[Rfam]
RNA: L2-Alphaproteobacteria ribosomal protein leader
RNA sequence: GGGGACCUUCGGGGCCCUAUAACGCGGGUGGAGAGCUCUCCAUCCUACACAUAGCAGGCCAUUGGCCUGCGUUUGCUAAACGGAAGACAGAAA
Numbered sequence: 001g002g003g004g005a006c007c008u009u010c011g012g013g014g015c016c017c018u019a020u021a022a023c024g025c026g027g028g029u030g031g032a033g034a035g036c037u038c039u040c041c042a043u044c045c046u047a048c049a050c051a052u053a054g055c056a057g058g059c060c061a062u063u064g065g066c067c068u069g070c071g072u073u074u075g076c077u078a079a080a081c082g083g084a085a086g087a088c089a090g091a092a093a
Base pairs, nucleotide, nucleotide: 001018002017003016004015006014007013008012024070025069026068027067028066029065